[Rfam]
RNA sequence: GCCACAUGAUGACCAAGUAGACGUGCAUUAGCGCUCAGCGCAAAGAUGACCCUAUAUCUAUCACCCAAUGUCUGAUGGCC
Dot-bracket structure: ((((..........................((((...))))..................................)))).
Small nucleolar RNA SNORD83: an 80-nucleotide RNA sequence from Synaphobranchus kaupii. A reference for the family is Jady and Kiss (2000), "Characterisation of the U83 and U84 small nucleolar RNAs: two novel 2'-O-ribose methylation guide RNAs that lack complementarities to ribosomal RNAs", Nucleic Acids Res. The match comes from Rfam's covariance-model search (45 bits). Rfam 15.1 lists 1,393 matches to the family in 644 species. By type it is a C/D-box small nucleolar RNA.